[Rfam]
RNA sequence: CGGUACAGCCGUGCUAUCGGCUUUCCGGUAACGGAAGGCAGGAAAGUCCGGACAGCACAGGGCAACGCACCACCUAACGGGUGGGUGCUCCGCGAAAGCGGGGUAACAGACAGUGCCACAGAAAAUAACCGCCCCGGUAUCCGGGGUAAGGGUGAAAAUGUGGGGUAAAAGCCCACGGCAGUAGCAGGUAACUGUUAUUGCGGGUAAACCUUGCGUGCUGAAAUGCCAUGUAUACGGUCGUUUGAGGGCUGCCCGUCCGAUGACCGAGGGUAGGCAGAUACAGGCGUUCCAGUGAUGGGCGCCGCAGAUAAAUGAUAGCAGUUCCGGUGCAAACCGGGAUACAGAAUCCGGCUUAUACGCUGUACCGGGUG
Numbered sequence: 001c002g003g004u005a006c007a008g009c010c011g012u013g014c015u016a017u018c019g020g021c022u023u024u025c026c027g028g029u030a031a032c033g034g035a036a037g038g039c040a041g042g043a044a045a046g047u048c049c050g051g052a053c054a055g056c057a058c059a060g061g062g063c064a065a066c067g068c069a070c071c072a073c074c075u076a077a078c079g080g081g082u083g084g085g086u087g088c089u090c091c092g093c094g095a096a097a098g099c100g101g102g103g104u105a106a107c108a109g110a111c112a113g114u115g116c117c118a119c120a121g122a123a124a125a126u127a128a129c130c131g132c133c134c135c136g137g138u139a140u141c142c143g144g145g146g147u148a149a150g151g152g153u154g155a156a157a158a159u160g161u162g163g164g165g166u167a168a169a170a171g172c173c174c175a176c177g178g179c180a181g182u183a184g185c186a187g188g189u190a191a192c193u194g195u196u197a198u199u200g201c202g203g204g205u206a207a208a209c210c211u212u213g214c215g216u217g218c219u220g221a222a223a224u225g226c227c228a229u230g231u232a233u234a235c236g237g238u239c240g241u242u243u244g245a246g247g248g249c250u251g252c253c254c255g256u257c258c259g260a261u262g263a264c265c266g267a268g269g270g271u272a273g274g275c276a277g278a279u280a281c282a283g284g285c286g287u288u289c290c291a292g293u294g295a296u297g298g299g300c301g302c303c304g305c306a307g308a309u310a311a312a313u314g315a316u317a318g319c320a321g322u323u324c325c326g327g328u329g330c331a332a333a334c335c336g337g338g339a340u341a342c343a344g345a346a347u348c349c350g351g352c353u354u355a356u357a358c359g360c361u362g363u364a365c366c367g368g369g370u371g
Stems, first nucleotide, its partner, number of pairs: 001367009011356001012320007020039008044354003048351005053220004060254004065216005070084005085107001086105008108211002113209002115205003129151002131147007159177006180199008224276004235266005246258004283303004288299004

This 371-nucleotide RNA sequence from Chitinophaga cymbidii belongs to the Rfam family "Bacterial RNase P class A". Taxonomically the source falls in Chitinophaga (Bacteria, Pseudomonadati, Bacteroidota, Chitinophagales). A search with the family's covariance model found it, with a score of 249 bits. By type it is a ribozyme. From the family's description: Ribonuclease P (RNase P) is a ubiquitous endoribonuclease, found in archaea, bacteria and eukarya as well as chloroplasts and mitochondria.